Rfam assigns this 94-nucleotide sequence from Sarcophilus harrisii to the family "mir-210 microRNA precursor family". For this family Rfam cites "The developmental miRNA profiles of zebrafish as determined by small RNA cloning" (Chen et al., Genes Dev, 2005).

RNA sequence: UCCGGUCGCAGGGGAGCCACUGACUAACGCACAUUGUGCUGCGGGACCCACUGUGCGUGUGACAGCGGCUACCAUGCAGCCGGCCCGCCACGGA
Numbered sequence: 001u002c003c004g005g006u007c008g009c010a011g012g013g014g015a016g017c018c019a020c021u022g023a024c025u026a027a028c029g030c031a032c033a034u035u036g037u038g039c040u041g042c043g044g045g046a047c048c049c050a051c052u053g054u055g056c057g058u059g060u061g062a063c064a065g066c067g068g069c070u071a072c073c074a075u076g077c078a079g080c081c082g083g084c085c086c087g088c089c090a091c092g093g094a
Stems, first nucleotide, its partner, number of pairs: 005080002008077003012073001015070004020065003024061001025059002028057006035050002
Annotation: It scores 69 bits against the family's covariance model.